[Rfam]
RNA sequence: CUCUUAUCCUGAGUGGUGGAGGGACAUGGACCCAAUGAAACCCAGCAACCUCUUUAUUUAAAGAAAGGUGCCAAACCGUUUGCAGACAAAUAUGGUCUGAACGAUAAGAG
Number, nucleotide and partner (000 for none) at each position: 001c110002u109003c108004u107005u106006a105007u104008c103009c000010u000011g000012a000013g043014u000015g042016g041017u040018g000019g000020a000021g033022g032023g031024a000025c000026a000027u000028g080029g077030a000031c023032c022033c021034a000035a000036u000037g000038a000039a000040a017041c016042c015043c013044a000045g071046c070047a069048a000049c068050c067051u064052c063053u062054u061055u000056a000057u000058u000059u000060a000061a054062a053063g052064a051065a000066a000067g050068g049069u047070g046071c045072c000073a000074a000075a000076c000077c029078g000079u000080u028081u000082g000083c099084a098085g097086a096087c095088a000089a000090a000091u000092a000093u000094g000095g087096u086097c085098u084099g083100a000101a000102c000103g008104a007105u006106a005107a004108g003109a002110g001